[Rfam]
Overview:
Shown here is an 85-nucleotide RNA sequence from Halcyon senegalensis, a member of the family "Small nucleolar RNA SNORD127". The source organism's lineage runs through Eukaryota, Craniata, Amniota, Archelosauria and Halcyon.

Nucleotides: 085
Base pairs, nucleotide, nucleotide: 002084003083004082005081006080007079
Number, partner (000 for none) and nucleotide at each position: 001000a002084g003083g004082c005081a006080a007079c008000g009000a010000u011000g012000a013000u014000g015000a016000c017000a018000g019000g020000a021000a022000u023000u024000g025000u026000g027000g028000u029000u030000g031000u032000c033000u034000g035000u036000a037000g038000u039000g040000u041000u042000g043000g044000u045000c046000g047000c048000u049000g050000c051000g052000u053000g054000g055000a056000g057000a058000c059000a060000c061000c062000a063000g064000u065000c066000c067000c068000u069000c070000u071000a072000a073000g074000c075000u076000g077000a078000c079007g080006u081005u082004g083003c084002c085000g
By type it is a C/D-box small nucleolar RNA.
Rfam links the family to the GO terms nucleolus and RNA processing.
A search with the family's covariance model found it, with a score of 57 bits.
The base pairs follow the family's consensus structure, which was predicted with WAR.
On this family, see Yang et al., Nucleic Acids Res 2006: "snoSeeker: an advanced computational package for screening of guide and orphan snoRNA genes in the human genome".